[Rfam]
A member of the RNA family "mir-1306 microRNA precursor family" from Oryctolagus cuniculus, 72 nucleotides long.
The literature on the family includes a 2008 paper in Genome Res by Morin et al., "Application of massively parallel sequencing to microRNA profiling and discovery in human embryonic stem cells".
Its family is annotated with miRNA-mediated post-transcriptional gene silencing and RISC complex in the Gene Ontology.
NCBI's taxonomy places the organism under Eukaryota, Sarcopterygii, Eutheria, Lagomorpha, Oryctolagus.
RNA sequence: GUCUCCACCACCUCCGUUGCAAAUGUCCAGUGAUGCAGUGGUAAUGGACAUUGGCUCUGGUAGUGAAGAACA
Numbered sequence: 001g002u003c004u005c006c007a008c009c010a011c012c013u014c015c016g017u018u019g020c021a022a023a024u025g026u027c028c029a030g031u032g033a034u035g036c037a038g039u040g041g042u043a044a045u046g047g048a049c050a051u052u053g054g055c056u057c058u059g060g061u062a063g064u065g066a067a068g069a070a071c072a
Base pairs, nucleotide, nucleotide: 009065010064011063014060015059019055020054022052023051024050025049026048027047028046029045033042034041